[Rfam]
RNA sequence: UGAGUGGUUUAGGUAGUCUCAUGUUGUUGGGCUAAAUUAUUUCUCCCACAACACGAAACUGCCUUGAUUACCUC
Number, nucleotide and partner (000 for none) at each position: 001u000002g000003a000004g071005u070006g069007g068008u067009u066010u000011a064012g063013g062014u061015a060016g059017u058018c000019u056020c000021a000022u053023g052024u051025u050026g049027u048028u000029g047030g046031g045032c000033u000034a000035a000036a000037u000038u000039a000040u000041u000042u000043c000044u000045c031046c030047c029048a027049c026050a025051a024052c023053a022054c000055g000056a019057a000058a017059c016060u015061g014062c013063c012064u011065u000066g009067a008068u007069u006070a005071c004072c000073u000074c000
This 74-nucleotide RNA sequence from Hippoglossus hippoglossus belongs to the Rfam family "mir-196 microRNA precursor family". The sequence is in the family's curated seed alignment. The organism belongs to Hippoglossus, within Eukaryota. Rfam 15.1 lists 1,813 matches to the family in 642 species. The base pairs follow the family's consensus structure, which was predicted with PFOLD.